Shown here is a 92-nucleotide sequence from Faecalibacterium prausnitzii, a member of the family "c-di-GMP-I riboswitch aptamer".
The source organism's lineage runs through Bacteria, Bacillati, Oscillospiraceae, Faecalibacterium and Faecalibacterium prausnitzii.
[Rfam]
RNA sequence: CUUAAUACUUGGUAAACCUACCGAAAGAUAGGGCAACAAAGCCAAAUGAGUCUAAAAUCUCAUAUACGAGGUCAUGGCAGCUGGUUGCUUUU
Dot-bracket structure: ...........((...((((.(....).))))...))..((((....(.(((....((((........))))...)))...)))))......
Numbered sequence: 001c002u003u004a005a006u007a008c009u010u011g012g013u014a015a016a017c018c019u020a021c022c023g024a025a026a027g028a029u030a031g032g033g034c035a036a037c038a039a040a041g042c043c044a045a046a047u048g049a050g051u052c053u054a055a056a057a058u059c060u061c062a063u064a065u066a067c068g069a070g071g072u073c074a075u076g077g078c079a080g081c082u083g084g085u086u087g088c089u090u091u092u
Stems, first nucleotide, its partner, number of pairs: 012037002017032004022027001040086004048082001050078003057072004